[Rfam]
RNA sequence: ACAUGUUAAAGGCAAAACUAGGGAAACCUAGUGACGCAAAGCUAUAGGGCCUAAUUAAUGAAAUUUGGUAGCCAGUUGUCAUU
Numbered sequence: 001a002c003a004u005g006u007u008a009a010a011g012g013c014a015a016a017a018c019u020a021g022g023g024a025a026a027c028c029u030a031g032u033g034a035c036g037c038a039a040a041g042c043u044a045u046a047g048g049g050c051c052u053a054a055u056u057a058a059u060g061a062a063a064u065u066u067g068g069u070a071g072c073c074a075g076u077u078g079u080c081a082u083u
Base pairs, nucleotide, nucleotide: 012037013036017032018031019030020029021028022027040077041076042075043074047073048072049069050068051067056063
RNA: c-di-GMP-I riboswitch aptamer